[Rfam]
RNA: Aggregatibacter sRNA 22
RNA sequence: GUGCGGUUACAAAGAACAACGUUUUUUAAAUAUUGGCUUUGCUAACGCUCCCGAUGGGGAUAAACAAACGAAUUUGUGAAUAAUUUUUUUAUUUA
Numbered sequence: 001g002u003g004c005g006g007u008u009a010c011a012a013a014g015a016a017c018a019a020c021g022u023u024u025u026u027u028a029a030a031u032a033u034u035g036g037c038u039u040u041g042c043u044a045a046c047g048c049u050c051c052c053g054a055u056g057g058g059g060a061u062a063a064a065c066a067a068a069c070g071a072a073u074u075u076g077u078g079a080a081u082a083a084u085u086u087u088u089u090u091a092u093u094u095a
Stems, first nucleotide, its partner, number of pairs: 011027007031047001033045005049060004064077005080092004